The record is a 52-nucleotide sequence from Litoreibacter ponti, which matches "ffh sRNA" in Rfam. A search with the family's covariance model found it, with a score of 56 bits. On this family, see Meyer et al., BMC Genomics 2009: "Identification of candidate structured RNAs in the marine organism 'Candidatus Pelagibacter ubique'". The source organism's lineage runs through Bacteria, Pseudomonadota, Alphaproteobacteria, Roseobacteraceae and Litoreibacter. Rfam classes the family as a small RNA.

RNA sequence: CGGAGCCGGGAUCGCCCCCCAUCAGCGCGUCGCGCCCAUGGGGGCGAAACUC
Numbered sequence: 001c002g003g004a005g006c007c008g009g010g011a012u013c014g015c016c017c018c019c020c021a022u023c024a025g026c027g028c029g030u031c032g033c034g035c036c037c038a039u040g041g042g043g044g045c046g047a048a049a050c051u052c
Base pairs, nucleotide, nucleotide: 016044017043018042019041020040021039022038025035026034027033028032